[Rfam]
RNA sequence: UUAGAUAUGAAUUGAUUAUGUUUGGAUAUGCUUAAUUAAAAGUGAUUCUUUUGAGUUGAUAUUGUUUGGAUAU
Number, nucleotide and partner (000 for none) at each position: 001u000002u000003a000004g000005a000006u000007a000008u000009g000010a000011a060012u059013u058014g057015a056016u055017u054018a000019u000020g052021u000022u000023u000024g048025g047026a046027u045028a000029u044030g043031c042032u041033u040034a000035a000036u000037u000038a000039a000040a033041a032042g031043u030044g029045a027046u026047u025048c024049u000050u000051u000052u020053g000054a017055g016056u015057u014058g013059a012060u011061a000062u000063u000064g000065u000066u000067u000068g000069g000070a000071u000072a000073u000
Record summary:
Shown here is a 73-nucleotide sequence from Medicago truncatula, a member of the family "MIR5272 microRNA precursor family". The family has 6 seed sequences and 271 matches in Rfam 15.1. NCBI's taxonomy places the organism under Eukaryota, Streptophyta, Streptophytina, Mesangiospermae, Medicago.